[Rfam]
RNA sequence: GAACCGGCAAAUCCUAUCUCCACCUCCUCGUGGUGGUCCCUGGAAAUCCGGGGCGUGCUGUGGGAGUACGUCUCGGAGCCAAGGGAGAAGG
Numbered sequence: 001g002a003a004c005c006g007g008c009a010a011a012u013c014c015u016a017u018c019u020c021c022a023c024c025u026c027c028u029c030g031u032g033g034u035g036g037u038c039c040c041u042g043g044a045a046a047u048c049c050g051g052g053g054c055g056u057g058c059u060g061u062g063g064g065a066g067u068a069c070g071u072c073u074c075g076g077a078g079c080c081a082a083g084g085g086a087g088a089a090g091g
Stems, first nucleotide, its partner, number of pairs: 013091003017087001019085003022034003047077013
About this RNA:
This 91-nucleotide sequence from Phyllotreta striolata belongs to the Rfam family "drz-agam-1 ribozyme".